[Rfam]
RNA sequence: AUGGAGACAUGGCAUAAAGCCCAAAGAGAGACUUUGAAAACUUGACUGCCAACUUGAACUGAUAAAUUGCAUCUCAUUUU
Numbered sequence: 001a002u003g004g005a006g007a008c009a010u011g012g013c014a015u016a017a018a019g020c021c022c023a024a025a026g027a028g029a030g031a032c033u034u035u036g037a038a039a040a041c042u043u044g045a046c047u048g049c050c051a052a053c054u055u056g057a058a059c060u061g062a063u064a065a066a067u068u069g070c071a072u073c074u075c076a077u078u079u080u
Stems, first nucleotide, its partner, number of pairs: 004075004011021003026070001028068002